Plastid-psbN 5UTR RNA: a 61-nucleotide RNA from Cucumis sativus. About the family: Plastid psbN is a non-coding RNA (ncRNA) recognised in plastids. It was reported as a conserved 11 stem-loop in the prime untranslated region (5UTR) of psbN genes. It has been reported that the motif is retained in a subset of mature transcripts in barley, which can suggests a possible role in transcript alternative 5 prime processing. Rfam classes the family as a cis-regulatory element. A reference for the family is Richter et al. (2023), "Retrograde signaling in plants: A critical review focusing on the GUN pathway and beyond", Plant Commun. Lineage of the source: Eukaryota > Streptophyta > Euphyllophyta > Cucurbitales > Cucumis. The base pairs follow the family's consensus structure, which was predicted with LocARNA.
[Rfam]
RNA sequence: UGCAACACCCAUCAAAGUUGUAGUUUCCUAUCCAGGAGCCACGUUAUCAUAUUCUAAAUUU
Dot-bracket structure: ................(.(((.(((((.......))))).))).)................
Numbered sequence: 001u002g003c004a005a006c007a008c009c010c011a012u013c014a015a016a017g018u019u020g021u022a023g024u025u026u027c028c029u030a031u032c033c034a035g036g037a038g039c040c041a042c043g044u045u046a047u048c049a050u051a052u053u054c055u056a057a058a059u060u061u
Stems, first nucleotide, its partner, number of pairs: 017045001019043003023039005